[Rfam]
RNA sequence: CUAAUGUUUCUUGCUUAAAUGAGUAUUCCAUGUAAAUGAUUCACUCACUAAAAUGGGUGGGUUGGUUUGGGUUUCUCUUCAUGAGAUGCUCAUUUGAGCAAGCAAUGUUCG
Numbered sequence: 001c002u003a004a005u006g007u008u009u010c011u012u013g014c015u016u017a018a019a020u021g022a023g024u025a026u027u028c029c030a031u032g033u034a035a036a037u038g039a040u041u042c043a044c045u046c047a048c049u050a051a052a053a054u055g056g057g058u059g060g061g062u063u064g065g066u067u068u069g070g071g072u073u074u075c076u077c078u079u080c081a082u083g084a085g086a087u088g089c090u091c092a093u094u095u096g097a098g099c100a101a102g103c104a105a106u107g108u109u110c111g
Base pairs, nucleotide, nucleotide: 004108005107006106007105008104010102011101012100013099014098015097016096017095018094019093020092021091022090023089024088025087026086027085029083030082
Dot-bracket structure: ...(((((.((((((((((((((((((.((...................................................)).)))))))))))))))))).)))))...